This 286-nucleotide RNA sequence from Cavia porcellus belongs to the Rfam family "Mason-Pfizer monkey virus packaging signal". The family has 9 seed sequences and 2,921 matches in Rfam 15.1. For this family Rfam cites "Secondary structure model of the Mason-Pfizer monkey virus 5' leader sequence: identification of a structural motif common to a variety of retroviruses" (Harrison et al., J Virol, 1995). This family represents a group of sequences that are related to the Mason-Pfizer monkey virus (MPMV) packaging signal. The packaging signal is located in the 5' UTR and is required for specific RNA encapsidation.
RNA sequence: UGGCGCCCCAACAUGGGGCCAGAGAAUAGGGGAUCCAGUGAGGGACGCUGUUCAAGAAGCAGGCACAAAAACAGGAUGGAGAAAAUUCCGAGAUAGAGGAAAAGAUUACACGGGAGCCUGCUGCAUUUUCUACAUCUCGGUGAGUAAAAAACAAUUAUGGGACAAGAAAUGAGCCAACAUGGGAUUUUUAUUGAAAGUUUAGGAAAGGCUCUAAAGGCAUGAGGAGUAAAGGUUAAAAUUAAGCAAUUAUGUCAAUAUUUUGAUUAUAUAAAGGCAGUUUGUCCUU
Numbered sequence: 001u002g003g004c005g006c007c008c009c010a011a012c013a014u015g016g017g018g019c020c021a022g023a024g025a026a027u028a029g030g031g032g033a034u035c036c037a038g039u040g041a042g043g044g045a046c047g048c049u050g051u052u053c054a055a056g057a058a059g060c061a062g063g064c065a066c067a068a069a070a071a072c073a074g075g076a077u078g079g080a081g082a083a084a085a086u087u088c089c090g091a092g093a094u095a096g097a098g099g100a101a102a103a104g105a106u107u108a109c110a111c112g113g114g115a116g117c118c119u120g121c122u123g124c125a126u127u128u129u130c131u132a133c134a135u136c137u138c139g140g141u142g143a144g145u146a147a148a149a150a151a152c153a154a155u156u157a158u159g160g161g162a163c164a165a166g167a168a169a170u171g172a173g174c175c176a177a178c179a180u181g182g183g184a185u186u187u188u189u190a191u192u193g194a195a196a197g198u199u200u201a202g203g204a205a206a207g208g209c210u211c212u213a214a215a216g217g218c219a220u221g222a223g224g225a226g227u228a229a230a231g232g233u234u235a236a237a238a239u240u241a242a243g244c245a246a247u248u249a250u251g252u253c254a255a256u257a258u259u260u261u262g263a264u265u266a267u268a269u270a271a272a273g274g275c276a277g278u279u280u281g282u283c284c285u286u
Stems, first nucleotide, its partner, number of pairs: 006031003014025001036050004089139003093135002104130002111123003145165001152159002170213002173209003220262005226256002230248002233245001271286004